[Rfam]
RNA sequence: CGGAUGCAGUGAUGAGUGCAUAGUUCAGCUGAUAACUGUGACGAAGAAAAGUGUCUUUCGCUCCUAACUGAUGCUUCGA
Numbered sequence: 001c002g003g004a005u006g007c008a009g010u011g012a013u014g015a016g017u018g019c020a021u022a023g024u025u026c027a028g029c030u031g032a033u034a035a036c037u038g039u040g041a042c043g044a045a046g047a048a049a050a051g052u053g054u055c056u057u058u059c060g061c062u063c064c065u066a067a068c069u070g071a072u073g074c075u076u077c078g079a
Stems, first nucleotide, its partner, number of pairs: 004076001006074003
This 79-nucleotide sequence from Stegastes partitus belongs to the Rfam family "Small nucleolar RNA snR60/Z15/Z230/Z193/J17". Gene Ontology terms of the family: RNA processing and nucleolus. The organism belongs to Stegastes, within Eukaryota. Clan: SNORD77 clan. A reference for the family is Lowe and Eddy (1999), "A computational screen for methylation guide snoRNAs in yeast", Science. The family has 23 seed sequences and 3,592 matches in Rfam 15.1. The base pairs follow the family's consensus structure. Rfam classes the family as a C/D-box small nucleolar RNA.